A member of the RNA family "Manganese Mn2+ riboswitch aptamer (yybP-ykoY)" from Dokdonella fugitiva, 91 nucleotides long. The pairing is the family consensus, mapped onto this sequence. It scores 59 bits against the family's covariance model.
RNA sequence: CAUCGGGGAGUAGCCGCGCGCAGCGCGCGUGGCGCGCGUCAACACACUUGGCCGGCAGGCCAUGGCGCGCGCGGGGUCCGACGGGACCUUC
Numbered sequence: 001c002a003u004c005g006g007g008g009a010g011u012a013g014c015c016g017c018g019c020g021c022a023g024c025g026c027g028c029g030u031g032g033c034g035c036g037c038g039u040c041a042a043c044a045c046a047c048u049u050g051g052c053c054g055g056c057a058g059g060c061c062a063u064g065g066c067g068c069g070c071g072c073g074g075g076g077u078c079c080g081a082c083g084g085g086a087c088c089u090u091c
Base pairs, nucleotide, nucleotide: 018030019029020028032072033071034070035069036068037067038066039065040064041063049062050061051060052059053058073090074089075088076087077086078085079084
Lineage of the source: Bacteria > Pseudomonadati > Gammaproteobacteria > Lysobacterales > Dokdonella.